[Rfam]
Source information:
The family of this 162-nucleotide RNA from Bradyrhizobium sp. ORS 278 is "6S / SsrS RNA". It is annotated as a non-coding RNA gene. About the family: E. coli 6S RNA was the first non coding RNA to be sequenced, but its function was unknown until recently. It is one of the family's seed sequences. The source organism's lineage runs through Bacteria, Pseudomonadati, Pseudomonadota, Nitrobacteraceae and Bradyrhizobium. Pairs were carried over by alignment from the consensus structure, which is taken from published work.

RNA sequence: GCGAGGCUGCGACGCGCGUCCGGAACCAACAUAUCCCCGGGGCCUUAUCGAUCCUUAAGGGAACUGUCCCUGGCCAGGUCCGUGGACCUGGACAUAUGGUGCCCACCUACUUUCGUAGGGAACUCCGGGAUCGAGCGUUUCAACGGCGAUUGCGGCUUCGCU
Numbered sequence: 001g002c003g004a005g006g007c008u009g010c011g012a013c014g015c016g017c018g019u020c021c022g023g024a025a026c027c028a029a030c031a032u033a034u035c036c037c038c039g040g041g042g043c044c045u046u047a048u049c050g051a052u053c054c055u056u057a058a059g060g061g062a063a064c065u066g067u068c069c070c071u072g073g074c075c076a077g078g079u080c081c082g083u084g085g086a087c088c089u090g091g092a093c094a095u096a097u098g099g100u101g102c103c104c105a106c107c108u109a110c111u112u113u114c115g116u117a118g119g120g121a122a123c124u125c126c127g128g129g130a131u132c133g134a135g136c137g138u139u140u141c142a143a144c145g146g147c148g149a150u151u152g153c154g155g156c157u158u159c160g161c162u
Stems, first nucleotide, its partner, number of pairs: 002160010013148003017145003034130004039125003043120002059104003063100005074091005